[Rfam]
RNA sequence: UCAAGCAGUUUGCUAAUUCGGUAUUAGGGAAACGGGGGAACCAGUUUUGGGGCGUAUCUCUAUGGUUUUGAGUAUAGAGAAGGGCAUCUCUCAGUCCUAGUCCGCCAGCUAACUCCGUCGGCAUUGAGAGGAGACUGA
Number, nucleotide and partner (000 for none) at each position: 001u000002c000003a000004a000005g000006c000007a000008g000009u000010u000011u123012g122013c121014u120015a000016a000017u031018u030019c029020g000021g000022u000023a000024u000025u000026a000027g000028g000029g019030a018031a017032a118033c117034g116035g115036g114037g113038g000039a000040a000041c000042c049043a048044g000045u000046u000047u000048u043049g042050g103051g102052g101053c000054g000055u000056a000057u000058c079059u078060c077061u076062a075063u074064g073065g000066u000067u000068u000069u000070g000071a000072g000073u064074a063075u062076a061077g060078a059079g058080a000081a000082g097083g096084g095085c094086a000087u000088c000089u000090c000091u000092c000093a000094g085095u084096c083097c082098u000099a000100g000101u052102c051103c050104g000105c000106c000107a000108g000109c000110u000111a000112a000113c037114u036115c035116c034117g033118u032119c000120g014121g013122c012123a011124u000125u000126g000127a000128g000129a000130g000131g000132a000133g000134a000135c000136u000137g000138a000
The record is a 138-nucleotide sequence from Pleurocapsales cyanobacterium LEGE 06147, which matches "c-di-AMP riboswitch aptamer (ydaO/yuaA leader)" in Rfam. The match comes from Rfam's covariance-model search (73 bits).